[Rfam]
RNA sequence: UGGAGAAGGGGAGCACGUGCAGUUGAUGACAUAUAUAUGUAUGAAACUGCACGUGCCCUGCUUCUCCAGC
Dot-bracket structure: ((((((((.((.((((((((((((....(......)........)))))))))))).)).))))))))..
RNA: MIR164 microRNA precursor family